[Rfam]
RNA sequence: GGGAAACGAUGGCGGGGCUGGGGAAAUGAGCUCCCCCGAGUCCUCGCCGGGCAAAUAGGCUCA
Dot-bracket structure: .............((((((.(((....[[[[[..))).)))))).............]]]]].
The family of this 63-nucleotide sequence from Oryctolagus cuniculus is "Ma3 gene ribosomal frameshift signal". Rfam links the family to the GO term translational frameshifting. The match comes from Rfam's covariance-model search (49 bits). On this family, see Wills et al., J Biol Chem 2006: "A functional -1 ribosomal frameshift signal in the human paraneoplastic Ma3 gene".